[Rfam]
RNA sequence: GGGGCUGUUACGGAUUCGACAGGGAUAGUUCGAGCUCGGAUGGCGCGUCGAGGGGUCGUCCUCGUCAACAACGCAAAAGCCAAUAAUAACUGGCAAAGAAAAACAAAACCUAGCUUUCGCUGCGUAAUAGUAGCUUAAGCUGAUCCUCCGUGCAUCGCCCAUGUGCUACGGUAAGGGUCUUACUCUAAGUGGGAUACGGUUAAAGGCUUCCGUUUGUAGUCUUUAAAAAGAGAUCAAUCAAACUAGCUGAAAGGAAGCCCGUUUCGAGGCCGAGAUUCAAGCGAAAUUCUAAUAUCGAGACUACACGCGUAGAAGUUCGAGUGCCGAUAUUUCUGGACGCGGGUUCGACUCCCGCCAGCUCCAUUU
Dot-bracket structure: (((((((............((((((((.(..(.((((((((..((((((((((..[.[[)))))........]].]......................................((..(((((......)))))..))...((((((((((((((..[[[[[)))).))))..)))))).........]]]]]......(((((((((...[.[[..)))))))))..............]].].((((((.....(((.[[[[..[))).....)))).))..........]....]]]]...))))).....)))))))).).).))))))))...(((((.......))))))))))))....